Background:
This 151-nucleotide RNA sequence from a Streptosporangiales bacterium belongs to the Rfam family "c-di-AMP riboswitch aptamer (ydaO/yuaA leader)". Rfam links the family to the GO terms regulation of gene expression and cyclic-di-AMP binding. A search with the family's covariance model found it, with a score of 81 bits. The source organism's lineage runs through Bacteria, Bacillati, Actinomycetota, Actinomycetes and Streptosporangiales. This family represents a conserved RNA structure found upstream of the ydaO and yuaA genes in Bacillus subtilis and related genes in other bacteria.
RNA sequence: CCAGUCGAGGCGCCGAAUCCCGGGCAGGCUUCCUCGCCGUCCGGGAACCGGGGACCCACAUACCCGGGGUGAAUCCGCGGGCCCGCACCGCGGUAGGGCGACUCCGGCCCGAACCCGUCAGCUAACCCGGUAGGCAGCAAGGAGAGGAGGU
Numbered sequence: 001c002c003a004g005u006c007g008a009g010g011c012g013c014c015g016a017a018u019c020c021c022g023g024g025c026a027g028g029c030u031u032c033c034u035c036g037c038c039g040u041c042c043g044g045g046a047a048c049c050g051g052g053g054a055c056c057c058a059c060a061u062a063c064c065c066g067g068g069g070u071g072a073a074u075c076c077g078c079g080g081g082c083c084c085g086c087a088c089c090g091c092g093g094u095a096g097g098g099c100g101a102c103u104c105c106g107g108c109c110c111g112a113a114c115c116c117g118u119c120a121g122c123u124a125a126c127c128c129g130g131u132a133g134g135c136a137g138c139a140a141g142g143a144g145a146g147g148a149g150g151u
Stems, first nucleotide, its partner, number of pairs: 012135003018046008047131006057066001067116003075093004096110004